[Rfam]
RNA: MIR821 microRNA precursor family
Organism: Miscanthus lutarioriparius
RNA sequence: GAUUUCCGUUGAAAAAGUCAUGAACAUACAAGUUAUACAACUCAUCAAGAUCUACAACUUUUAUUUUGGUUAUUUGUUCAUCCGACAAAGUGAUAGUAACAUUGUUCACAAAAUUCACAUAUCUCUCAUAUAGUUUCAUAAACCAUAAGAGAGAUGUAAAAUUUAUGAACAAUGUUACUAUUAUUUUAUCGGAUGAACAAAUAACCAAAAUAAAAGUUGUAGAUCUUGAUCAGUUUUACAACUUAUAUGUUCAUGACUUUUUCAACUGAAAUC
Numbered sequence: 001g002a003u004u005u006c007c008g009u010u011g012a013a014a015a016a017g018u019c020a021u022g023a024a025c026a027u028a029c030a031a032g033u034u035a036u037a038c039a040a041c042u043c044a045u046c047a048a049g050a051u052c053u054a055c056a057a058c059u060u061u062u063a064u065u066u067u068g069g070u071u072a073u074u075u076g077u078u079c080a081u082c083c084g085a086c087a088a089a090g091u092g093a094u095a096g097u098a099a100c101a102u103u104g105u106u107c108a109c110a111a112a113a114u115u116c117a118c119a120u121a122u123c124u125c126u127c128a129u130a131u132a133g134u135u136u137c138a139u140a141a142a143c144c145a146u147a148a149g150a151g152a153g154a155u156g157u158a159a160a161a162u163u164u165a166u167g168a169a170c171a172a173u174g175u176u177a178c179u180a181u182u183a184u185u186u187u188a189u190c191g192g193a194u195g196a197a198c199a200a201a202u203a204a205c206c207a208a209a210a211u212a213a214a215a216g217u218u219g220u221a222g223a224u225c226u227u228g229a230u231c232a233g234u235u236u237u238a239c240a241a242c243u244u245a246u247a248u249g250u251u252c253a254u255g256a257c258u259u260u261u262u263c264a265a266c267u268g269a270a271a272u273c
Base pairs, nucleotide, nucleotide: 014260015259016258017257018256019255020254021253023251024250026248027247030244031243032242033241034240036238037237039235040234041233042232044230045229046228047227048226049225050224051223052222053221055219056218057217058216059215060214061213062212063211064210065209066208067207069205070204071203072202073201074200075199077197078196079195080194081193083191084190085189087187088186089185090184091183092182094180095179096178097177098176099175101173102172103171104170105169106168107167108166110164111163112162114160115159117157118156119155120154122152131145133143134142135141136140